[Rfam]
Rfam assigns this 86-nucleotide sequence from Cynoglossus semilaevis to the family "mir-135 microRNA precursor family".

RNA sequence: ACAACUGUGUCCUAUGGCUUUCUAUUCCUAUGUGAGUUCUUGGUACGAUGUCAUGUAGGGUUUAAAGCCAUUGGAUGCACAGUAGG
Dot-bracket structure: .(.(((((((((.((((((((..(.((((((((((...............)))))))))).).)))))))).))))..))))).).

Pairs were carried over by alignment from the consensus structure, which was predicted with PFOLD.